[Rfam]
RNA: Ruegeria cis2 sRNA
RNA sequence: AUCGAGCUGUUGUGCGGAUUGUAGUUCACGAAGGUGAAGCCGCGGGCCUGAUCGAUGGUGUGAAACAGCGGGUUCCAGCUGAACAUCGCGAGCAUGUAGCCGGGGGUCUGGUUCGCCACGAACAUCUUGCCGGAGGUAAACAUGUUGGCACGCAUG
Numbered sequence: 001a002u003c004g005a006g007c008u009g010u011u012g013u014g015c016g017g018a019u020u021g022u023a024g025u026u027c028a029c030g031a032a033g034g035u036g037a038a039g040c041c042g043c044g045g046g047c048c049u050g051a052u053c054g055a056u057g058g059u060g061u062g063a064a065a066c067a068g069c070g071g072g073u074u075c076c077a078g079c080u081g082a083a084c085a086u087c088g089c090g091a092g093c094a095u096g097u098a099g100c101c102g103g104g105g106g107u108c109u110g111g112u113u114c115g116c117c118a119c120g121a122a123c124a125u126c127u128u129g130c131c132g133g134a135g136g137u138a139a140a141c142a143u144g145u146u147g148g149c150a151c152g153c154a155u156g
Base pairs, nucleotide, nucleotide: 002037003036004035008034010032011031016026017025039059040058041057042056043054044053045052066156067155068153069152070151072084073083074082075081088149089148091146092145093144094143095142096141100136101135104131105126106125107124109121111119